Shown here is a 76-nucleotide sequence from Microcebus murinus, a member of the family "mir-320 microRNA precursor family".
RNA sequence: AAAUUAUGAGAGCUUCUCUUCCUGGUUCUUCCCAGAAUUGGGAAAAGCUGGGUUGAGAAGGUAAAAAAAAAAAAAA
Numbered sequence: 001a002a003a004u005u006a007u008g009a010g011a012g013c014u015u016c017u018c019u020u021c022c023u024g025g026u027u028c029u030u031c032c033c034a035g036a037a038u039u040g041g042g043a044a045a046a047g048c049u050g051g052g053u054u055g056a057g058a059a060g061g062u063a064a065a066a067a068a069a070a071a072a073a074a075a076a
Stems, first nucleotide, its partner, number of pairs: 014059005021052005029044006

A reference for the family is Berezikov et al. (2006), "Many novel mammalian microRNA candidates identified by extensive cloning and RAKE analysis", Genome Res. It scores 83 bits against the family's covariance model. NCBI's taxonomy places the organism under Eukaryota, Eumetazoa, Sarcopterygii, Eutheria, Microcebus.